[Rfam]
RNA sequence: ACAAAGGCUCUUUUAAGAGCCACCCACUUCUAAAGACCAUUUCGAU
Dot-bracket structure: .....((((((....)))))).........................

Rfam assigns this 46-nucleotide sequence from Gasterosteus aculeatus to the family "Histone 3' UTR stem-loop". It scores 38 bits against the family's covariance model. About the family: The mRNAs of metazoan histone genes lack a poly-A tail. 3' end processing occurs at a site between a highly conserved stem-loop (modelled by this family) and a purine rich region around 20 nts downstream (the histone downstream element, or HDE). The stem-loop is bound by a 31 kDa stem-loop binding protein (SLBP - also termed the histone hairpin binding protein, or HBP). Together with U7 snRNA binding of the HDE, SLBP binding nucleate s the formation of the processing complex. The family's RNA type in Rfam is cis-regulatory element. Gene Ontology term of the family: mRNA 3'-end processing by stem-loop binding and cleavage.